Description
Shown here is a 53-nucleotide RNA sequence from Oscillatoriales cyanobacterium USR001, a member of the family "Nitrogen stress-induced RNA 1".
RNA sequence: UAGUAGAUGCACCCUGAUGGCUUUCCCGCUCCAAUGGAGCGGGAAUUUUAUUU
Numbered sequence: 001u002a003g004u005a006g007a008u009g010c011a012c013c014c015u016g017a018u019g020g021c022u023u024u025c026c027c028g029c030u031c032c033a034a035u036g037g038a039g040c041g042g043g044a045a046u047u048u049u050a051u052u053u
Stems, first nucleotide, its partner, number of pairs: 003012002023045010
NCBI's taxonomy places the organism under Bacteria, Cyanobacteriota, Cyanophyceae, Oscillatoriophycideae, Oscillatoriales. Rfam classes the family as a small RNA. On this family, see Ionescu et al., J Mol Biol 2010: "Heterocyst-specific transcription of NsiR1, a non-coding RNA encoded in a tandem array of direct repeats in cyanobacteria". It scores 49 bits against the family's covariance model. The pairing is the family consensus, mapped onto this sequence.